Shown here is a 112-nucleotide RNA sequence from Gorilla gorilla, a member of the family "mir-182 microRNA precursor family". On this family, see Tesfaye et al., Mol Reprod Dev 2009: "Identification and expression profiling of microRNAs during bovine oocyte maturation using heterologous approach". Its Rfam clan is "mir-182 clan". The family's consensus secondary structure was predicted with RNAalifold. Its family is annotated with RISC complex and miRNA-mediated post-transcriptional gene silencing in the Gene Ontology.
RNA sequence: GCUGCUUGCCUCCCCCUGUUUUUGGCAAUGGUAGAACUCACACUGGUGAGGUAACAGGAUCCGGUGGUUCUAGACUUGCCAACUAUGGGGCGAGGACUCAGCCGGCACCCUG
Numbered sequence: 001g002c003u004g005c006u007u008g009c010c011u012c013c014c015c016c017u018g019u020u021u022u023u024g025g026c027a028a029u030g031g032u033a034g035a036a037c038u039c040a041c042a043c044u045g046g047u048g049a050g051g052u053a054a055c056a057g058g059a060u061c062c063g064g065u066g067g068u069u070c071u072a073g074a075c076u077u078g079c080c081a082a083c084u085a086u087g088g089g090g091c092g093a094g095g096a097c098u099c100a101g102c103c104g105g106c107a108c109c110c111u112g
Stems, first nucleotide, its partner, number of pairs: 002112001004110001022082007032072006041066006